[Rfam]
RNA: BsrG
RNA sequence: AUAAUAGUGUGGUAGCUCAAGGGUGGUUGGUUCACUCCCGGUAGAGAGGGGGUGGUGCCUUGUCAGUAUUCGAAGCAUUGAUGUUUGCAGUAGCAUUUGCGACAUUGGUCGUUGUAAUAUUGUCGUUUAACCAUAAAAAAUAACCCAUCCUUGAGUUGAGAGCUCAGAUGGGUUAAUCCUAAUUGAAGCCAAUCCCCUUUGGGACCAACUAUUAUAAUGGACUGGUUGAUGCACUAACAUCAAUCAGU
Numbered sequence: 001a002u003a004a005u006a007g008u009g010u011g012g013u014a015g016c017u018c019a020a021g022g023g024u025g026g027u028u029g030g031u032u033c034a035c036u037c038c039c040g041g042u043a044g045a046g047a048g049g050g051g052g053u054g055g056u057g058c059c060u061u062g063u064c065a066g067u068a069u070u071c072g073a074a075g076c077a078u079u080g081a082u083g084u085u086u087g088c089a090g091u092a093g094c095a096u097u098u099g100c101g102a103c104a105u106u107g108g109u110c111g112u113u114g115u116a117a118u119a120u121u122g123u124c125g126u127u128u129a130a131c132c133a134u135a136a137a138a139a140a141u142a143a144c145c146c147a148u149c150c151u152u153g154a155g156u157u158g159a160g161a162g163c164u165c166a167g168a169u170g171g172g173u174u175a176a177u178c179c180u181a182a183u184u185g186a187a188g189c190c191a192a193u194c195c196c197c198u199u200u201g202g203g204a205c206c207a208a209c210u211a212u213u214a215u216a217a218u219g220g221a222c223u224g225g226u227u228g229a230u231g232c233a234c235u236a237a238c239a240u241c242a243a244u245c246a247g248u
Stems, first nucleotide, its partner, number of pairs: 001215005007209002011205001013192001016155008025145004032055008062124001064122005075088003098116004166180002193204004221248010